[Rfam]
Small nucleolar RNA SNORD109A: a 66-nucleotide RNA sequence from Microtus ochrogaster.
A reference for the family is Runte et al. (2001), "The IC-SNURF-SNRPN transcript serves as a host for multiple small nucleolar RNA species and as an antisense RNA for UBE3A", Hum Mol Genet.
From the family's description: Humans have two copies of the SNORD109 gene, SNORD109A and SNORD109B.
The organism belongs to Microtus, within Eukaryota.
Its family is annotated with nucleolus and RNA processing in the Gene Ontology.
Rfam 15.1 lists 412 matches to the family in 134 species.
Nucleotides: 066
Stems, first nucleotide, its partner, number of pairs: 001066005
Number, partner (000 for none) and nucleotide at each position: 001066g002065g003064a004063u005062u006000g007000a008000u009000g010000a011000u012000g013000g014000a015000a016000a017000c018000a019000g020000u021000u022000c023000u024000c025000u026000g027000a028000a029000u030000a031000u032000g033000g034000u035000g036000a037000a038000u039000u040000a041000c042000u043000c044000a045000u046000a047000g048000a049000a050000a051000u052000g053000g054000c055000a056000a057000u058000c059000a060000g061000a062005g063004a064003u065002c066001c